[Rfam]
RNA sequence: GACUUCUUCCGACGUGACACAACAUCCAGCAGCGAUGUUGUGCGACCCGCAGUGUCAGUCGGUGGAAGUU
Number, nucleotide and partner (000 for none) at each position: 001g070002a069003c068004u067005u066006c065007u000008u000009c062010c061011g060012a059013c058014g000015u000016g000017a000018c000019a000020c000021a039022a038023c037024a036025u035026c034027c000028a000029g000030c000031a000032g000033c000034g026035a025036u024037g023038u022039u021040g000041u000042g000043c000044g056045a055046c054047c000048c000049g000050c000051a000052g000053u000054g046055u045056c044057a000058g013059u012060c011061g010062g009063u000064g000065g006066a005067a004068g003069u002070u001